[Rfam]
RNA sequence: GUAAGGCACUCUGGAGAGACCUUUUCAUUAAGGCGCCGAAGGGGAAACGCGCUGUGCAGCGCCAACAGGCUGCUCAAAGCGCGCGACAACUCUCAGGCAAAAGGACAGAGGGCGACAA
Numbered sequence: 001g002u003a004a005g006g007c008a009c010u011c012u013g014g015a016g017a018g019a020c021c022u023u024u025u026c027a028u029u030a031a032g033g034c035g036c037c038g039a040a041g042g043g044g045a046a047a048c049g050c051g052c053u054g055u056g057c058a059g060c061g062c063c064a065a066c067a068g069g070c071u072g073c074u075c076a077a078a079g080c081g082c083g084c085g086a087c088a089a090c091u092c093u094c095a096g097g098c099a100a101a102a103g104g105a106c107a108g109a110g111g112g113c114g115a116c117a118a
Base pairs, nucleotide, nucleotide: 006113007112009110010109011108012107013106020033021032022031023030035098036097037096038094039093042092043091044090048085049084050083051082052081
Glycine riboswitch aptamer: a 118-nucleotide sequence from Advenella mimigardefordensis. Its family is annotated with glycine biosynthetic process in the Gene Ontology. The match comes from Rfam's covariance-model search (65 bits).